[Rfam]
Annotation:
The family of this 109-nucleotide RNA sequence from Miscanthus lutarioriparius is "MIR5565 microRNA precursor family". The match comes from Rfam's covariance-model search (92 bits). Taxonomically the source falls in Miscanthus (Eukaryota, Streptophytina, Spermatophyta, Liliopsida). Gene Ontology terms of the family: miRNA-mediated post-transcriptional gene silencing and RISC complex.

RNA sequence: GCACACAAAUUCACCCCAAUCCAUAUGGCUUGGAAGGGAUUGAGAUGAAAUUUAGUUUAAGUUCCACCUCAAUUCCUCCCAAACCAUGUGGAUUGGGGUGAAUUCGUGU
Dot-bracket structure: ...(((.(((((((.(((((((((((((.(((..(((((((((..((.................))..)))))))))..))).))))))))))))).))))))).))).